[Rfam]
RNA: trpB ncRNA motif
RNA sequence: UUCAUAGAUGCAACUUUUAGUGUACUUUCUAAAAUUGUAUCUAUGAGGCUAACUUAUGAUUAAGAAGACCACAUAGAUGAGCUGUCUAUGUGGUUUUUGCUAUAU
Numbered sequence: 001u002u003c004a005u006a007g008a009u010g011c012a013a014c015u016u017u018u019a020g021u022g023u024a025c026u027u028u029c030u031a032a033a034a035u036u037g038u039a040u041c042u043a044u045g046a047g048g049c050u051a052a053c054u055u056a057u058g059a060u061u062a063a064g065a066a067g068a069c070c071a072c073a074u075a076g077a078u079g080a081g082c083u084g085u086c087u088a089u090g091u092g093g094u095u096u097u098u099g100c101u102a103u104a105u
Base pairs, nucleotide, nucleotide: 001047002046003045004044005043006042007041008040009039010038011037015034016033017032018031019030020029068094069093070092071091072090073089074088075087076086077085078084